Shown here is a 171-nucleotide sequence from Clostridium estertheticum, a member of the family "Group II catalytic intron D1-D4-3". Rfam describes the family as follows. Group II introns are found in rRNA, tRNA and mRNA of organelles in fungi, plants and protists, and also in mRNA in bacteria. The source organism's lineage runs through Bacteria, Clostridia, Eubacteriales, Clostridiaceae and Clostridium. On this family, see Lehmann and Schmidt, Crit Rev Biochem Mol Biol 2003: "Group II introns: structure and catalytic versatility of large natural ribozymes".
RNA sequence: UCCACCGUGAGGUGGAAUCUAAAGGAAGUCGGCGGCAAAACUCUGGUCUGACGAACAGAAACUACAUAUAAGGCAUAUGCUUGUGGGUAAGUUUGCUUAACAAAACGAAGCCCUAACUAUCCGAAACAGGCGGUGUAAAUGUAGCAGAUAUUUGGAGGGAAAGUAGACGUU
Numbered sequence: 001u002c003c004a005c006c007g008u009g010a011g012g013u014g015g016a017a018u019c020u021a022a023a024g025g026a027a028g029u030c031g032g033c034g035g036c037a038a039a040a041c042u043c044u045g046g047u048c049u050g051a052c053g054a055a056c057a058g059a060a061a062c063u064a065c066a067u068a069u070a071a072g073g074c075a076u077a078u079g080c081u082u083g084u085g086g087g088u089a090a091g092u093u094u095g096c097u098u099a100a101c102a103a104a105a106c107g108a109a110g111c112c113c114u115a116a117c118u119a120u121c122c123g124a125a126a127c128a129g130g131c132g133g134u135g136u137a138a139a140u141g142u143a144g145c146a147g148a149u150a151u152u153u154g155g156a157g158g159g160a161a162a163g164u165a166g167a168c169g170u171u
Stems, first nucleotide, its partner, number of pairs: 001016006028171001030169002035164002041157005046149005062144006073136003078132007085113004091106004